[Rfam]
RNA: Alphaproteobacterial ar14
Organism: Aquamicrobium lusatiense
RNA sequence: UCGAAUUCCGCCGGGCCUACCUCCUCCCAGACCCAGCGGAUAUAGGCCAGCCAUUAUCCUCCUCCCGAUAGCUGGCCUUCUCAUACGACACCCGCCGGACCUCCUCCCCCGGCGGGUGUUGUUA
Number, nucleotide and partner (000 for none) at each position: 001u000002c000003g000004a000005a000006u000007u040008c039009c038010g000011c036012c000013g034014g033015g032016c000017c030018u000019a000020c000021c000022u000023c000024c000025u000026c000027c000028c000029a000030g017031a000032c015033c014034c013035a000036g011037c000038g009039g008040a007041u000042a000043u000044a000045g077046g076047c075048c074049a073050g072051c071052c000053a069054u068055u000056a000057u000058c000059c000060u000061c000062c000063u000064c000065c000066c000067g000068a054069u053070a000071g051072c050073u049074g048075g047076c046077c045078u000079u000080c000081u000082c000083a000084u000085a000086c000087g000088a119089c118090a117091c116092c115093c114094g113095c112096c111097g110098g109099a000100c000101c000102u000103c000104c000105u000106c000107c000108c000109c098110c097111g096112g095113c094114g093115g092116g091117u090118g089119u088120u000121g000122u000123u000124a000